[Rfam]
RNA sequence: UAGUUUCUCAUUUGUACGUCGCUUUGGAUAAAAGCGUCUGCUAAAUGAUUAAAU
Numbered sequence: 001u002a003g004u005u006u007c008u009c010a011u012u013u014g015u016a017c018g019u020c021g022c023u024u025u026g027g028a029u030a031a032a033a034g035c036g037u038c039u040g041c042u043a044a045a046u047g048a049u050u051a052a053a054u
Stems, first nucleotide, its partner, number of pairs: 013043001014041003020036006